The family of this 61-nucleotide RNA sequence from Paenibacillus sp. Y412MC10 is "Fluoride riboswitch aptamer (crcB RNA motif)". The sequence is in the family's curated seed alignment. The source organism's lineage runs through Bacteria, Bacillati, Bacillota, Caryophanales and Paenibacillus.

RNA sequence: AUUGAAUGAGGCGAUGGAGUUCGCCAUAACCGCUUCCAUAGCUAAUGACUCCUACCAGAGG
Number, nucleotide and partner (000 for none) at each position: 001a000002u000003u000004g000005a000006a000007u000008g000009a000010g025011g024012c023013g022014a000015u000016g052017g051018a050019g049020u048021u047022c013023g012024c011025c010026a000027u000028a000029a000030c000031c000032g042033c041034u040035u000036c000037c000038a000039u000040a034041g033042c032043u000044a000045a000046u000047g021048a020049c019050u018051c017052c016053u000054a000055c000056c000057a000058g000059a000060g000061g000